[Rfam]
RNA: Small nucleolar RNA SNORD69
Organism: Cavia porcellus
RNA sequence: AAGAUGAAGCAAGUGAUAAAGACUGGAACUAACAGUGUAUGCCUUAUUCAAUCCGGUCCUUGUUUCAUUUU
Dot-bracket structure: ((((((((((...................................................))))))))))